[Rfam]
RNA sequence: GCCUUGGUGGUGAAAUGGUAGACACGCGAGACUCGAAAUCUCGUGCUAAAGAGCGUAGAGGAUCAAUUCCUCUUCAAUGCA
Numbered sequence: 001g002c003c004u005u006g007g008u009g010g011u012g013a014a015a016u017g018g019u020a021g022a023c024a025c026g027c028g029a030g031a032c033u034c035g036a037a038a039u040c041u042c043g044u045g046c047u048a049a050a051g052a053g054c055g056u057a058g059a060g061g062a063u064c065a066a067u068u069c070c071u072c073u074u075c076a077a078u079g080c081a
Base pairs, nucleotide, nucleotide: 001080002079004077005076006075007074010025011024012023027043028042029041030040031039057073058072059071060070061069
RNA: tRNA
Organism: Gossypium davidsonii